About this RNA: Rfam assigns this 100-nucleotide sequence to the family "Purine riboswitch aptamer". The base pairs follow the family's consensus structure, which is taken from published work.
[Rfam]
RNA sequence: CCAGUAGCCGCAAGUUACCUAAAUAUAUGUUGGAAAUACGGUCCGACGUUUCUACCUGCCACCAUUUUAAUGGCAGACUAUUUGGAGAUUAAAUGAAGAA
Numbered sequence: 001c002c003a004g005u006a007g008c009c010g011c012a013a014g015u016u017a018c019c020u021a022a023a024u025a026u027a028u029g030u031u032g033g034a035a036a037u038a039c040g041g042u043c044c045g046a047c048g049u050u051u052c053u054a055c056c057u058g059c060c061a062c063c064a065u066u067u068u069a070a071u072g073g074c075a076g077a078c079u080a081u082u083u084g085g086a087g088a089u090u091a092a093a094u095g096a097a098g099a100a
Base pairs, nucleotide, nucleotide: 019085020084021083022082023081024080025079029047030046031045032044033043034042056076057075058074059073060072061071
Riboswitches are metabolite binding domains within certain messenger RNAs that serve as precision sensors for their corresponding targets.